[Rfam]
RNA sequence: AGAGAAGCAGCUUUUAACAACUGGAUACGAUGAAGCAUUGUUAAAAGC
Numbered sequence: 001a002g003a004g005a006a007g008c009a010g011c012u013u014u015u016a017a018c019a020a021c022u023g024g025a026u027a028c029g030a031u032g033a034a035g036c037a038u039u040g041u042u043a044a045a046a047g048c
Base pairs, nucleotide, nucleotide: 011047012046013045014044015043017041018040019039

uup RNA: a 48-nucleotide sequence from Enterococcus phoeniculicola. The organism belongs to Enterococcus phoeniculicola, within Bacteria.